[Rfam]
Notes
This 128-nucleotide RNA sequence from Pseudaestuariivita atlantica belongs to the Rfam family "Ruegeria cis8 sRNA". The family has 2 seed sequences and 138 matches in Rfam 15.1. NCBI's taxonomy places the organism under Bacteria, Pseudomonadati, Pseudomonadota, Rhodobacterales, Pseudaestuariivita. The literature on the family includes a 2016 paper in Front Microbiol by Rivers et al., "Experimental Identification of Small Non-Coding RNAs in the Model Marine Bacterium Ruegeria pomeroyi DSS-3".

RNA sequence: ACCGCCAGCACCUUGGCGAUGUAGGGGAUCAGCGGCAGGUUCAGGAUCAGAAGCACCACGUUGCCGAUAUACAUCGAGAUGAUGACCGCCCAGAAGAUUUGCGGAUCGUCGACCAUCAGGCGCGGCCC
Numbered sequence: 001a002c003c004g005c006c007a008g009c010a011c012c013u014u015g016g017c018g019a020u021g022u023a024g025g026g027g028a029u030c031a032g033c034g035g036c037a038g039g040u041u042c043a044g045g046a047u048c049a050g051a052a053g054c055a056c057c058a059c060g061u062u063g064c065c066g067a068u069a070u071a072c073a074u075c076g077a078g079a080u081g082a083u084g085a086c087c088g089c090c091c092a093g094a095a096g097a098u099u100u101g102c103g104g105a106u107c108g109u110c111g112a113c114c115a116u117c118a119g120g121c122g123c124g125g126c127c128c
Stems, first nucleotide, its partner, number of pairs: 003018006026128002029125002033122002036119001038114003043109001045107004050102001052100002057096001061093003072084004